[Rfam]
The record is a 94-nucleotide RNA, which matches "L4-Archaeoglobi ribosomal protein leades" in Rfam.

RNA sequence: CUGACGACGGCGCAUGGGUGGAGAUAGGUGUUGAGCGCCCAUUGCCCCUCAGGACCGAAAAGCGGUUUCGGUUGGGGCAGCGCCUGAACGUCAG
Dot-bracket structure: (((((...(((((.((((....(.(.(....).).).)))).(((((.....((((((((.....)))))))).)))))))))).....)))))